[Rfam]
RNA sequence: UUGAUCCUUUUUCCUGGGCAUAUGACUCUUUAAAUAUUGGUUCUAAAGAGGUAUGGGGCAGGGAAAAAUAGGGCAA
Numbered sequence: 001u002u003g004a005u006c007c008u009u010u011u012u013c014c015u016g017g018g019c020a021u022a023u024g025a026c027u028c029u030u031u032a033a034a035u036a037u038u039g040g041u042u043c044u045a046a047a048g049a050g051g052u053a054u055g056g057g058g059c060a061g062g063g064a065a066a067a068a069u070a071g072g073g074c075a076a
Stems, first nucleotide, its partner, number of pairs: 010067003014063002018059002021055003026050007